[Rfam]
RNA sequence: GGGGGCAGAGGAAGCAUGGCCACGCAGCACACAGACAAGGAGCUUGCUCCUCACAAAGCUGUGGGGAAAGUCCUCGUGCCCUUGGGCAGAGAGUGCCACUGGGAGACCAGCAGGCCUGGGUUCAGGAGCUUACAGCGAAGCUUUUUGCAGAGGUGUGGUUCCUGAGCACUGGCCACUUGCAGCAGCAAAGUUAUGCCAUGAGCGUUUUUGCAACGCCAACUGAACGAGGCUCACUCUCCUGAUGCCCC
Number, nucleotide and partner (000 for none) at each position: 001g000002g248003g247004g246005g245006c244007a000008g000009a240010g239011g238012a237013a000014g000015c200016a199017u198018g197019g196020c195021c000022a000023c063024g062025c061026a060027g059028c058029a000030c000031a000032c000033a000034g000035a000036c000037a000038a051039g050040g049041a048042g047043c000044u000045u000046g000047c042048u041049c040050c039051u038052c000053a000054c000055a000056a000057a000058g028059c027060u026061g025062u024063g023064g000065g000066g000067a000068a000069a231070g230071u000072c229073c228074u227075c226076g000077u000078g000079c000080c000081c000082u000083u000084g000085g097086g096087c095088a094089g000090a000091g000092a000093g000094u088095g087096c086097c085098a000099c110100u109101g108102g107103g000104a000105g000106a000107c102108c101109a100110g099111c000112a000113g173114g000115c171116c000117u000118g000119g000120g167121u166122u165123c164124a163125g162126g161127a160128g159129c158130u000131u000132a000133c155134a154135g000136c152137g000138a000139a000140g148141c147142u000143u000144u000145u000146u000147g141148c140149a000150g000151a000152g136153g000154u134155g133156u000157g000158g129159u128160u127161c126162c125163u124164g123165a122166g121167c120168a000169c000170u000171g115172g000173c113174c000175a000176c000177u000178u000179g000180c000181a000182g000183c000184a000185g000186c000187a000188a000189a000190g000191u000192u000193a000194u000195g020196c019197c018198a017199u016200g015201a000202g216203c215204g214205u213206u212207u000208u000209u000210g000211c000212a206213a205214c204215g203216c202217c000218a000219a000220c000221u000222g000223a000224a000225c000226g075227a074228g073229g072230c070231u069232c000233a000234c000235u000236c000237u012238c011239c010240u009241g000242a000243u000244g006245c005246c004247c003248c002
This 248-nucleotide sequence from Effrenium voratum belongs to the Rfam family "RNase MRP". RNase MRP is an enzymatically active ribonucleoprotein with two distinct roles in eukaryotes. The match comes from Rfam's covariance-model search (106 bits).